Shown here is a 595-nucleotide part of an RNA from Cyprinodon variegatus, a member of the family "Eukaryotic small subunit ribosomal RNA". Clan: SSU clan. NCBI's taxonomy places the organism under Eukaryota, Teleostomi, Teleostei, Euacanthomorphacea, Cyprinodon.

[Rfam]
RNA sequence: AGUCAUAUGCUUGUCUCAAAGAUUAAGCCAUGCAAGUGUAAGUACACACGGACUGUACAGUGAAACUGCGAAUGGCUCAUUAAAUCACACCUAAUAUACUGGAUAUUCUCAGUUACUUGGAUAACUGCGGUAAUUCUGGAGCUAAUACAUGCGAAAAAAUCCCGAACUUACGUGAGGGAUGCUUUUAUUAGACCAAAACCAAACGGCUUCGGCUGUACCAUUGGUGACUCUGAAUAACAUUUGCAAAUCGCAUGGCUUUACGCCGGCGAUAUUUCCGCCUAAGGUGUGCCCUAUCAACUGUCGACUGUGGCAUAGACGCCCACAGUGGUUUUGACGGGUAACGGGGAAUCAGGGUUCGAUUCCGGAGAGGGAGCCUGAGAAACGGCUACCACUUCUAAGGAAGGCAGCAGGCACGCAAAUUACCCAAUGAUCGAAGAUCGAGGUAGUGACGAAAAAUAACGAAGCCGGACUCAUCCGAGGCCCGGUUAUCGGAAUGAGUACACUUUAAAUCCUUUAACGAGGAACAAUUGGAGGGCAAGUCUGGUGCCAGCAGCCGCGGUAAUUCCAGCUCCAAUAGCGUAUAUUAAAGUUGUUG
Number, nucleotide and partner (000 for none) at each position: 001a585002g584003u583004c000005a582006u581007a580008u579009g578010c577011u576012u000013g000014u454015c000016u452017c451018a000019a000020a447021g414022a000023u000024u000025a000026a000027g412028c411029c410030a000031u409032g408033c407034a000035a000036g069037u068038g000039u000040a000041a067042g066043u065044a000045c000046a000047c000048a061049c060050g000051g000052a000053c000054u000055g000056u000057a000058c000059a000060g049061u048062g000063a000064a000065a043066c042067u041068g037069c036070g000071a000072a000073u000074g000075g000076c367077u366078c365079a000080u000081u000082a000083a000084a000085u000086c288087a287088c286089a000090c000091c283092u282093a000094a000095u281096a280097u000098a000099c000100u000101g276102g275103a274104u000105a000106u000107u000108c000109u000110c000111a000112g000113u000114u000115a000116c151117u000118u149119g148120g000121a000122u000123a000124a000125c141126u140127g000128c138129g137130g136131u000132a000133a000134u000135u000136c130137u129138g128139g000140a126141g125142c000143u000144a000145a000146u000147a000148c119149a118150u000151g116152c000153g000154a000155a000156a000157a000158a000159a180160u179161c178162c177163c176164g000165a000166a173167c172168u000169u000170a000171c000172g167173u166174g000175a000176g163177g162178g161179a160180u159181g000182c000183u000184u000185u237186u236187a235188u234189u233190a000191g000192a000193c000194c000195a000196a000197a000198a225199c224200c223201a222202a000203a000204c000205g214206g213207c212208u000209u000210c000211g000212g207213c206214u205215g000216u000217a000218c000219c000220a000221u000222u201223g200224g199225u198226g000227a000228c000229u000230c000231u000232g000233a189234a188235u187236a186237a185238c000239a000240u000241u000242u000243g000244c000245a000246a000247a000248u269249c268250g267251c266252a000253u265254g264255g263256c262257u000258u000259u000260a000261c000262g256263c255264c254265g253266g251267c250268g249269a248270u000271a000272u000273u000274u103275c102276c101277g000278c000279c000280u096281a095282a092283g091284g000285u000286g088287u087288g086289c000290c338291c337292u336293a000294u000295c000296a000297a329298c328299u327300g000301u000302c000303g000304a326305c325306u324307g323308u322309g321310g320311c000312a000313u000314a000315g000316a000317c000318g000319c000320c310321c309322a308323c307324a306325g305326u304327g299328g298329u297330u000331u000332u000333g000334a000335c000336g292337g291338g290339u000340a000341a000342c364343g363344g362345g361346g357347a356348a355349u354350c000351a000352g000353g000354g349355u348356u347357c346358g000359a000360u000361u345362c344363c343364g342365g078366a077367g076368a000369g390370g389371g000372a387373g386374c385375c000376u000377g000378a000379g000380a000381a000382a000383c000384g000385g374386c373387u372388a000389c370390c369391a000392c403393u402394u401395c400396u000397a000398a000399g000400g395401a394402a393403g392404g000405c000406a000407g033408c032409a031410g029411g028412c027413a000414c021415g000416c000417a000418a000419a000420u445421u000422a444423c443424c442425c000426a000427a000428u440429g439430a438431u437432c436433g000434a000435a000436g432437a431438u430439c429440g428441a000442g424443g423444u422445a420446g000447u020448g000449a000450c000451g017452a016453a000454a014455a000456a000457u000458a000459a000460c491461g490462a489463a487464g486465c485466c484467g483468g482469a000470c479471u478472c477473a000474u000475c000476c000477g472478a471479g470480g000481c000482c468483c467484g466485g465486u464487u463488a000489u462490c461491g460492g000493a000494a000495u000496g000497a000498g518499u517500a515501c000502a514503c000504u000505u000506u000507a000508a000509a000510u000511c000512c000513u000514u502515u500516a000517a499518c498519g000520a000521g000522g000523a000524a000525c000526a000527a000528u574529u573530g572531g571532a570533g569534g000535g000536c000537a000538a000539g000540u000541c568542u567543g566544g565545u000546g000547c000548c000549a000550g557551c556552a000553g000554c000555c000556g551557c550558g000559g000560u000561a000562a000563u000564u000565c544566c543567a542568g541569c533570u532571c531572c530573a529574a528575u000576a011577g010578c009579g008580u007581a006582u005583a003584u002585u001586a000587a000588a000589g000590u000591u000592g000593u000594u000595g000